[Rfam]
RNA: c-di-AMP riboswitch aptamer (ydaO/yuaA leader)
Organism: Streptomyces sp. AS58
RNA sequence: GUACGGCCUCCGCCGAAUCCGGAGCCCACGCGGCAGCCGGAGCCGGGGACCCAACCGACUUUGGGGUGAAUCGGUCCAACUCCUCCACGGGGAGGGACCGUAGGGCAACCCUUCCGAACCACCCGCCCGAACCCGACAGCUAACCCGGUAGGCGGCCCAUGGAAGGAGUC
Numbered sequence: 001g002u003a004c005g006g007c008c009u010c011c012g013c014c015g016a017a018u019c020c021g022g023a024g025c026c027c028a029c030g031c032g033g034c035a036g037c038c039g040g041a042g043c044c045g046g047g048g049a050c051c052c053a054a055c056c057g058a059c060u061u062u063g064g065g066g067u068g069a070a071u072c073g074g075u076c077c078a079a080c081u082c083c084u085c086c087a088c089g090g091g092g093a094g095g096g097a098c099c100g101u102a103g104g105g106c107a108a109c110c111c112u113u114c115c116g117a118a119c120c121a122c123c124c125g126c127c128c129g130a131a132c133c134c135g136a137c138a139g140c141u142a143a144c145c146c147g148g149u150a151g152g153c154g155g156c157c158c159a160u161g162g163a164a165g166g167a168g169u170c
Stems, first nucleotide, its partner, number of pairs: 011154004018041005042149006052063002064134003072100006103128004